Group II catalytic intron D1-D4-1: an 83-nucleotide RNA sequence from Roseospira goensis. The source organism's lineage runs through Bacteria, Pseudomonadota, Alphaproteobacteria, Rhodospirillales and Roseospira. About the family: Group II introns are found in rRNA, tRNA and mRNA of organelles in fungi, plants and protists, and also in mRNA in bacteria. A search with the family's covariance model found it, with a score of 65 bits. The literature on the family includes a 2003 paper in Crit Rev Biochem Mol Biol by Lehmann and Schmidt, "Group II introns: structure and catalytic versatility of large natural ribozymes". The family has 237 seed sequences and 2,508 matches in Rfam 15.1.
RNA sequence: CACCCGGCGCCGAGAGGCGUCGGCAUGGGGCGGCAGGAGUCAGCAGAGGCCAUAGGAGCCGGUUUGACCAGCCGGCAAAGGGC
Numbered sequence: 001c002a003c004c005c006g007g008c009g010c011c012g013a014g015a016g017g018c019g020u021c022g023g024c025a026u027g028g029g030g031c032g033g034c035a036g037g038a039g040u041c042a043g044c045a046g047a048g049g050c051c052a053u054a055g056g057a058g059c060c061g062g063u064u065u066g067a068c069c070a071g072c073c074g075g076c077a078a079a080g081g082g083c
Stems, first nucleotide, its partner, number of pairs: 001027002004023008040047002049083003058076006